[Rfam]
The family of this 129-nucleotide RNA sequence from Amphiprion ocellaris is "U4atac minor spliceosomal RNA". U4atac is an essential component of the minor U12-type spliceosome complex which is required for removal of the rarer class of eukaryotic introns (AT-AC, U12-type). It scores 92 bits against the family's covariance model. The base pairs follow the family's consensus structure, which is taken from published work. Lineage of the source: Eukaryota > Deuterostomia > Ctenosquamata > Percomorphaceae > Amphiprion. Clan: U4 clan. Rfam links the family to the GO terms mRNA 5'-splice site recognition, pre-mRNA 5'-splice site binding and U4atac snRNP.
RNA sequence: ACUUUCCUUGUCAUGGGGUGGUUCGGGAAACUCAAUGAACGCGUAGUGAGAGUUUCCCUGCUGACACCAUAUCAACACAUGCGCACCUCCUGAACUCUCAGUUCGGGUUCUGGUGCAAUUUUUGGAAAC
Numbered sequence: 001a002c003u004u005u006c007c008u009u010g011u012c013a014u015g016g017g018g019u020g021g022u023u024c025g026g027g028a029a030a031c032u033c034a035a036u037g038a039a040c041g042c043g044u045a046g047u048g049a050g051a052g053u054u055u056c057c058c059u060g061c062u063g064a065c066a067c068c069a070u071a072u073c074a075a076c077a078c079a080u081g082c083g084c085a086c087c088u089c090c091u092g093a094a095c096u097c098u099c100a101g102u103u104c105g106g107g108u109u110c111u112g113g114u115g116c117a118a119u120u121u122u123u124g125g126a127a128a129c
Base pairs, nucleotide, nucleotide: 006018007017008016009015021061022060027056028055029054030053031052032051033050039047040046083116084115085114086113087112089107090106091105092104093103094102